Nucleotides: 164
Base pairs, nucleotide, nucleotide: 003035004034005033036144037143038142039141040140041139046081082129083128084127090106091105092104093103109123110122111121112120
Number, partner (000 for none) and nucleotide at each position: 001000a002000a003035u004034u005033c006000g007000c008000a009000c010000c011000c012000a013000c014000c015000c016000a017000c018000c019000a020000u021000c022000c023000a024000c025000g026000c027000g028000u029000g030000g031000c032000a033005g034004g035003a036144g037143c038142g039141g040140g041139g042000g043000a044000c045000c046081c047000a048000g049000g050000u051000a052000g053000u054000a055000c056000g057000c058000c059000g060000u061000u062000c063000c064000g065000u066000u067000u068000c069000c070000g071000c072000g073000g074000a075000c076000g077000g078000c079000u080000a081046g082129g083128g084127g085000u086000g087000a088000a089000g090106u091105c092104g093103c094000g095000g096000a097000g098000c099000a100000a101000c102000c103093g104092c105091g106090a107000c108000c109123g110122g111121g112120c113000a114000u115000c116000u117000c118000c119000a120112g121111c122110c123109c124000g125000a126000a127084c128083c129082c130000g131000a132000c133000a134000g135000c136000u137000c138000a139041c140040c141039u142038c143037g144036u145000a146000g147000g148000c149000g150000c151000c152000g153000g154000a155000g156000a157000g158000g159000a160000a161000u162000u163000c164000a